The family of this 86-nucleotide sequence from Terribacillus saccharophilus is "c-di-GMP-I riboswitch aptamer". It scores 62 bits against the family's covariance model.
RNA sequence: AUACAUAUACGGCAGCACUGUUGAAAAGCAGUUACGCAAAACUUGAGGGGCUAAGGAAUGAGAUUCUAUGCCAGCCAGUUGCGAAA
Numbered sequence: 001a002u003a004c005a006u007a008u009a010c011g012g013c014a015g016c017a018c019u020g021u022u023g024a025a026a027a028g029c030a031g032u033u034a035c036g037c038a039a040a041a042c043u044u045g046a047g048g049g050g051c052u053a054a055g056g057a058a059u060g061a062g063a064u065u066c067u068a069u070g071c072c073a074g075c076c077a078g079u080u081g082c083g084a085a086a
Stems, first nucleotide, its partner, number of pairs: 012037002017032006040080004047076002049072003056066004